[Rfam]
RNA sequence: GGUUGGUCCGAAAGUUGUGGGUUAUCCAAAUCAUUCAGUUAGUAUCACUAACCUUCUAUUUCACCCCACUGCUGACCUUGACUGGCCAAUUUUUUA
Numbered sequence: 001g002g003u004u005g006g007u008c009c010g011a012a013a014g015u016u017g018u019g020g021g022u023u024a025u026c027c028a029a030a031u032c033a034u035u036c037a038g039u040u041a042g043u044a045u046c047a048c049u050a051a052c053c054u055u056c057u058a059u060u061u062c063a064c065c066c067c068a069c070u071g072c073u074g075a076c077c078u079u080g081a082c083u084g085g086c087c088a089a090u091u092u093u094u095u096a
Stems, first nucleotide, its partner, number of pairs: 001087008010079002015074001017069005038052002041049002
Shown here is a 96-nucleotide RNA, a member of the family "Y RNA". It is annotated as a non-coding RNA gene.